[Rfam]
RNA: Small nucleolar RNA SNORA79
RNA sequence: CGAUGACAGUUCCUCCUGCUGCCCAAGUUCUGGCAUCAGGAUUUUAUGUUAUCGGAGAUUAAAGAUGAUUUUCUUCACUCGGAGCGCACUGGGACAGCCGGAAUUGUCCAUCUGCGUUCCGAAUUUUGCGGAAUCAGACAGGU
Numbered sequence: 001c002g003a004u005g006a007c008a009g010u011u012c013c014u015c016c017u018g019c020u021g022c023c024c025a026a027g028u029u030c031u032g033g034c035a036u037c038a039g040g041a042u043u044u045u046a047u048g049u050u051a052u053c054g055g056a057g058a059u060u061a062a063a064g065a066u067g068a069u070u071u072u073c074u075u076c077a078c079u080c081g082g083a084g085c086g087c088a089c090u091g092g093g094a095c096a097g098c099c100g101g102a103a104u105u106g107u108c109c110a111u112c113u114g115c116g117u118u119c120c121g122a123a124u125u126u127u128g129c130g131g132a133a134u135c136a137g138a139c140a141g142g143u
Base pairs, nucleotide, nucleotide: 001054002053003052004051005050006049007048008047014041015040016039017038018037020035021034022033023032067135068134069133070132071131072130079122080121081120082119083118084117085116086115087114088113092109093108094107095106096105